The record is an 88-nucleotide sequence from Bacillus sp. Y1, which matches "c-di-GMP-I riboswitch aptamer" in Rfam. Rfam's curators write: GEMM was predicted in a large-scale screen for bacterial structured RNA regulatory elements. Taxonomically the source falls in Bacillus (Bacteria, Bacillota, Bacilli, Bacillaceae).
[Rfam]
RNA sequence: AAUUGAAAAAGGCAAACCCAUUGAAAGGUGGGGACGCAAAGCUACAGAUCUACGGUUCUAAAGGAACUAUGAUGGCUGAGUUGCCAAG
Numbered sequence: 001a002a003u004u005g006a007a008a009a010a011g012g013c014a015a016a017c018c019c020a021u022u023g024a025a026a027g028g029u030g031g032g033g034a035c036g037c038a039a040a041g042c043u044a045c046a047g048a049u050c051u052a053c054g055g056u057u058c059u060a061a062a063g064g065a066a067c068u069a070u071g072a073u074g075g076c077u078g079a080g081u082u083g084c085c086a087a088g
Stems, first nucleotide, its partner, number of pairs: 012037002017032006040082004045078003048073003055067004
Dot-bracket structure: ...........((...((((((....))))))...))..((((.((((((....((((.....))))...)))..)))))))......